[Rfam]
RNA sequence: UGUUCACUUUAGGGGUGUUCCGGCUAAAAACCGGAACUGAGAUGAUACCCUCAGUACCUGAUGCAGUUCACACUGACGUAGGGAAAAGUAUACUGAACCUU
Number, nucleotide and partner (000 for none) at each position: 001u000002g000003u000004u000005c000006a089007c088008u087009u086010u085011a051012g050013g049014g048015g000016u045017g037018u036019u035020c034021c033022g032023g031024c000025u000026a000027a000028a000029a000030a000031c023032c022033g021034g020035a019036a018037c017038u000039g000040a000041g000042a000043u000044g000045a016046u000047a000048c014049c013050c012051u011052c000053a000054g000055u000056a000057c082058c081059u080060g079061a000062u000063g000064c075065a074066g073067u000068u000069c000070a000071c000072a000073c066074u065075g064076a000077c000078g000079u060080a059081g058082g057083g000084a000085a010086a009087a008088g007089u006090a000091u000092a000093c000094u000095g000096a000097a000098c000099c000100u000101u000
RNA: TPP riboswitch aptamer (THI element)